[Rfam]
RNA sequence: GCGAUGAGCUGAAUUGCAUAAGACGAGAUUGACGCGCCUUUAUGGCAAGGCACAAAUGUGGAGUGCUGUCUCUCGCCGCAAUACGCAAAGACGUCCUUCAAAGGACGUC
Dot-bracket structure: .............((((......(((((..(((..((.......))..((.((.........)).))))))))))..))))........((((((((....))))))))
Rfam assigns this 109-nucleotide RNA from Pontibacillus marinus to the family "BsrF". By type it is a small RNA. The base pairs follow the family's consensus structure, which was predicted with WAR. NCBI's taxonomy places the organism under Bacteria, Bacilli, Bacillaceae, Pontibacillus, Pontibacillus marinus.